[Rfam]
RNA: mir-23 microRNA precursor family
Organism: Gadus morhua
RNA sequence: GGCCAGGGGGAUUCCCGGCAGAGUGAUUUUUGAGAAUAAGACACUGAAUCACAUUGCCAGGGAUUUCCAAUGGCU
Numbered sequence: 001g002g003c004c005a006g007g008g009g010g011a012u013u014c015c016c017g018g019c020a021g022a023g024u025g026a027u028u029u030u031u032g033a034g035a036a037u038a039a040g041a042c043a044c045u046g047a048a049u050c051a052c053a054u055u056g057c058c059a060g061g062g063a064u065u066u067c068c069a070a071u072g073g074c075u
Base pairs, nucleotide, nucleotide: 001075003073004072005071009068010067011064012063013062014061015060017058018057019056020055021054023052024051025050026049027048028047029046